[Rfam]
RNA sequence: GAGCUCUCUGGUGUCUUUUCUUAUAAGGACACUGAUUCUAUCAGAUGAGGGUCCCUAGCUGGGUUUAAGAAGUGCAAUAUUUAAACAAAAGCCAUGAACUUUGUAAGCCCAGUGUGUAAAGAUACACUCUGAGUUAUAAUUCAGAGGCAUAAUU
Number, nucleotide and partner (000 for none) at each position: 001g000002a000003g075004c074005u000006c072007u071008c000009u000010g000011g000012u000013g065014u000015c063016u062017u000018u000019u000020c058021u000022u000023a000024u057025a056026a000027g054028g053029a052030c051031a000032c049033u048034g000035a046036u045037u044038c000039u000040a000041u000042c000043a000044g037045a036046u035047g000048a033049g032050g000051g030052u029053c028054c027055c000056u025057a024058g020059c000060u000061g000062g016063g015064u000065u013066u000067a000068a000069g000070a000071a007072g006073u000074g004075c003076a000077a000078u000079a000080u000081u000082u000083a000084a000085a000086c000087a000088a000089a000090a000091g148092c147093c146094a000095u000096g000097a000098a000099c000100u000101u000102u000103g000104u000105a000106a000107g000108c000109c000110c000111a000112g127113u126114g125115u124116g123117u122118a000119a000120a000121g000122a117123u116124a115125c114126a113127c112128u145129c144130u143131g142132a141133g140134u139135u000136a000137u000138a000139a134140u133141u132142c131143a130144g129145a128146g093147g092148c091149a000150u000151a000152a000153u000154u000
This 154-nucleotide RNA sequence from Microcebus murinus belongs to the Rfam family "Small Cajal body specific RNA 1". The family's RNA type in Rfam is small Cajal body RNA. Rfam describes the family as follows. scaRNAs are a specific class of small nuclear RNAs which localise to the Cajal bodies and guide the modification of RNA polymerase II transcribed spliceosomal RNAs U1, U2, U4, U5 and U12. ACA35 belong to the H/ACA box class of guide RNAs as it has the predicted hairpin-hinge-hairpin-tail structure, conserved H/ACA-box motifs and is found associated with GAR1. It is predicted to guide pseudouridylation of the U2 spliceosomal snRNA at residue U89. The family's consensus secondary structure was predicted with RNAalifold. NCBI's taxonomy places the organism under Eukaryota, Opisthokonta, Eumetazoa, Euarchontoglires, Microcebus. It is one of the family's seed sequences.